[Rfam]
RNA: Archaeal small subunit ribosomal RNA, nucleotides 889 to 1466
RNA sequence: UGGCGGGGGAGCACCACAAGGGGUGAAGCCUGCGGUUCAAUUGGAGUCAACGCCGGGAACCUUACCAGGAGAGACAGCAGGGUGAAGGUCAAGCUGAAGACUUUACCAGACAAGCUGAGAGGAGGCGCAUGGCCGUCGACAGCUCGUGCCGUGAGGCGUCCUGUUAAGUCAGGCAACGAGCGAGACCCUUGCCAUUAAUUGCUUCCAUCGAUCGCAAGGUUGGCGGAGCUAGUUAAUGGGACUGCCGUCGCUAAGACGGAGGAAGGAAGGGGCCACGGCAGGUCAGUAUGCCCCGAAACUCUUGGGCCACACGCGGGCUGCAAUGGUAGGCACAAUAGGUACCGAAUUCGAAAGAAUGAGGCAAUCCCAAAAUCCUACCCCAGUUGUGAUUGAGGGCUGCAACUCGCCCUCAUGAAUCUGGAAUCCCUAGUAACCGCGUGUCAACAUCGCGCGGUGAAUACGUCCCUGCUCCUUGCACACACCGCCCGUCGCUUCACCCGAGUUGGGUUUGGGGGAGGUAGUAUCUUAUUGGUAUUAUCGAACCUAGGUUCGACAAGGGGGGAGAAGUCGUAACAAGG
Dot-bracket structure: (((((.(((((((..((..((((((.((((((((((....((((........))))........(((((((...((((.(......(((.(((.......))).)))...)..))))...((.((((..(((((((((...(((((((((....)))..((((......))))..)))))).....((((.(((((((...((..(.((((((....))))))..)))....)))))))..((.(((((.....))))).)).....))))....)))).)))...))))))))....)))))))...)).)))))))).)...((((((.......((..((..((((....))))..))....))......))))))......(....(((((((........)))))))....).....))))).....((((((((.......))))))))......))...)))))))))).))..(.(..((.(.((((.(((..((((((((((((...(((((((((.....)))))))))...))))))))))))..))).))))..).))...)..).
Numbered sequence: 001u002g003g004c005g006g007g008g009g010a011g012c013a014c015c016a017c018a019a020g021g022g023g024u025g026a027a028g029c030c031u032g033c034g035g036u037u038c039a040a041u042u043g044g045a046g047u048c049a050a051c052g053c054c055g056g057g058a059a060c061c062u063u064a065c066c067a068g069g070a071g072a073g074a075c076a077g078c079a080g081g082g083u084g085a086a087g088g089u090c091a092a093g094c095u096g097a098a099g100a101c102u103u104u105a106c107c108a109g110a111c112a113a114g115c116u117g118a119g120a121g122g123a124g125g126c127g128c129a130u131g132g133c134c135g136u137c138g139a140c141a142g143c144u145c146g147u148g149c150c151g152u153g154a155g156g157c158g159u160c161c162u163g164u165u166a167a168g169u170c171a172g173g174c175a176a177c178g179a180g181c182g183a184g185a186c187c188c189u190u191g192c193c194a195u196u197a198a199u200u201g202c203u204u205c206c207a208u209c210g211a212u213c214g215c216a217a218g219g220u221u222g223g224c225g226g227a228g229c230u231a232g233u234u235a236a237u238g239g240g241a242c243u244g245c246c247g248u249c250g251c252u253a254a255g256a257c258g259g260a261g262g263a264a265g266g267a268a269g270g271g272g273c274c275a276c277g278g279c280a281g282g283u284c285a286g287u288a289u290g291c292c293c294c295g296a297a298a299c300u301c302u303u304g305g306g307c308c309a310c311a312c313g314c315g316g317g318c319u320g321c322a323a324u325g326g327u328a329g330g331c332a333c334a335a336u337a338g339g340u341a342c343c344g345a346a347u348u349c350g351a352a353a354g355a356a357u358g359a360g361g362c363a364a365u366c367c368c369a370a371a372a373u374c375c376u377a378c379c380c381c382a383g384u385u386g387u388g389a390u391u392g393a394g395g396g397c398u399g400c401a402a403c404u405c406g407c408c409c410u411c412a413u414g415a416a417u418c419u420g421g422a423a424u425c426c427c428u429a430g431u432a433a434c435c436g437c438g439u440g441u442c443a444a445c446a447u448c449g450c451g452c453g454g455u456g457a458a459u460a461c462g463u464c465c466c467u468g469c470u471c472c473u474u475g476c477a478c479a480c481a482c483c484g485c486c487c488g489u490c491g492c493u494u495c496a497c498c499c500g501a502g503u504u505g506g507g508u509u510u511g512g513g514g515g516a517g518g519u520a521g522u523a524u525c526u527u528a529u530u531g532g533u534a535u536u537a538u539c540g541a542a543c544c545u546a547g548g549u550u551c552g553a554c555a556a557g558g559g560g561g562g563a564g565a566a567g568u569c570g571u572a573a574c575a576a577g578g
Stems, first nucleotide, its partner, number of pairs: 001479002003476003007473007016463002020427005025321001027319008035310002041056004065305007075117004080111001087107003091103003121294002124292004130288002132283003135279004142181006148157003160173004187271004192239007202228002206226001208223006242262002245259005325379006338367002342361002346357004386417001391412007433455008482577001484574001487570002490567001492564004497559003502554012517539009